This 126-nucleotide sequence from Puccinia coronata belongs to the Rfam family "Nematode snoRNA ceN39". It is annotated as an H/ACA-box small nucleolar RNA. NCBI's taxonomy places the organism under Eukaryota, Dikarya, Pucciniomycotina, Pucciniales, Puccinia coronata var. avenae. The match comes from Rfam's covariance-model search (37 bits). A reference for the family is Jia et al. (2007), "Systematic identification of non-coding RNA 2,2,7-trimethylguanosine cap structures in Caenorhabditis elegans", BMC Mol Biol.
[Rfam]
Nucleotides: 126
Base pairs, nucleotide, nucleotide: 003053004052005051006050007049011042012041015040016039017038018037019036020035021034022033023032025030065118066117067116068115069114070113071112072111078105079104081102082101083100084099085098087097088096
Number, partner (000 for none) and nucleotide at each position: 001000u002000g003053g004052g005051g006050g007049g008000g009000c010000u011042a012041g013000a014000g015040c016039c017038c018037c019036u020035c021034c022033a023032g024000a025030a026000u027000g028000c029000u030025u031000c032023u033022u034021g035020g036019a037018g038017g039016g040015g041012c042011u043000a044000g045000a046000g047000c048000c049007c050006c051005u052004c053003c054000a055000g056000a057000a058000u059000g060000c061000u062000u063000c064000u065118u066117g067116g068115a069114g070113g071112g072111g073000c074000u075000a076000g077000a078105g079104c080000c081102c082101c083100u084099c085098c086000a087097g088096a089000a090000u091000g092000c093000u094000u095000c096088u097087u098085g099084g100083a101082g102081g103000g104079g105078c106000c107000a108000g109000a110000g111072c112071c113070c114069c115068u116067c117066c118065a119000g120000a121000a122000u123000g124000c125000u126000u